[Rfam]
RNA sequence: GAGGUGCUUAUUGCAGCUGCUGGCCACUGCACAAGAUUAGACUCAAGACUCUUGUGCGUGUGACAGCGGCUAUUGUAAGAGACCGUAAAUACAGC
Numbered sequence: 001g002a003g004g005u006g007c008u009u010a011u012u013g014c015a016g017c018u019g020c021u022g023g024c025c026a027c028u029g030c031a032c033a034a035g036a037u038u039a040g041a042c043u044c045a046a047g048a049c050u051c052u053u054g055u056g057c058g059u060g061u062g063a064c065a066g067c068g069g070c071u072a073u074u075g076u077a078a079g080a081g082a083c084c085g086u087a088a089a090u091a092c093a094g095c
Base pairs, nucleotide, nucleotide: 005081007079008078009077010076011075015071016070017069018068019067020066021065022064024062025060026059028058029057030056031055032054033053035051036050
mir-210 microRNA precursor family: a 95-nucleotide RNA from Drosophila albomicans. For this family Rfam cites "Kaposi's sarcoma-associated herpesvirus expresses an array of viral microRNAs in latently infected cells" (Cai et al., Proc Natl Acad Sci U S A, 2005). The family's consensus secondary structure was predicted with WAR. Its family is annotated with miRNA-mediated post-transcriptional gene silencing and RISC complex in the Gene Ontology.